Shown here is a 97-nucleotide RNA from Streptomyces sp. Ru73, a member of the family "Glycine riboswitch aptamer". The match comes from Rfam's covariance-model search (64 bits).
RNA sequence: UGAAUCCGCGCGGGAGAGUUCCCGCCAGGCCACGGCGGGGCGCCGAAGGAGCAAGUCCUCCCUUGAAUCUCUCAGGCCCCUGUACUGCGCGGACGAG
Number, nucleotide and partner (000 for none) at each position: 001u000002g000003a000004a000005u000006c092007c091008g090009c089010g088011c087012g086013g085014g000015a000016g000017a000018g000019u000020u040021c039022c038023c037024g036025c035026c034027a000028g000029g000030c000031c000032a000033c000034g026035g025036c024037g023038g022039g021040g020041c000042g077043c076044c075045g073046a072047a000048g000049g071050a070051g069052c000053a000054a000055g064056u000057c000058c000059u000060c000061c000062c000063u000064u055065g000066a000067a000068u000069c051070u050071c049072u046073c045074a000075g044076g043077c042078c000079c000080c000081u000082g000083u000084a000085c013086u012087g011088c010089g009090c008091g007092g006093a000094c000095g000096a000097g000